The family of this 140-nucleotide RNA sequence from Vibrio cholerae is "Molybdenum/Tungsten riboswitch aptamer (Moco RNA motif)". The family's consensus secondary structure is taken from published work.
RNA sequence: GCUUGGCCUUAACUCCGAGCUUACCGCGCUAAGUUUAAACCUGUAAAUAUGCGUUGUAAGCCAGUGGCAGAAUGUCACAAGGGCAGGAUUGGAAAUGAUUUUGCCUCCCGUAUUUGGAAAGGUGUUCUGUGGCGCAACAA
Numbered sequence: 001g002c003u004u005g006g007c008c009u010u011a012a013c014u015c016c017g018a019g020c021u022u023a024c025c026g027c028g029c030u031a032a033g034u035u036u037a038a039a040c041c042u043g044u045a046a047a048u049a050u051g052c053g054u055u056g057u058a059a060g061c062c063a064g065u066g067g068c069a070g071a072a073u074g075u076c077a078c079a080a081g082g083g084c085a086g087g088a089u090u091g092g093a094a095a096u097g098a099u100u101u102u103g104c105c106u107c108c109c110g111u112a113u114u115u116g117g118a119a120a121g122g123u124g125u126u127c128u129g130u131g132g133c134g135c136a137a138c139a140a
Stems, first nucleotide, its partner, number of pairs: 003134001011126003015122002019061006026054004033048004064078005081106011107117002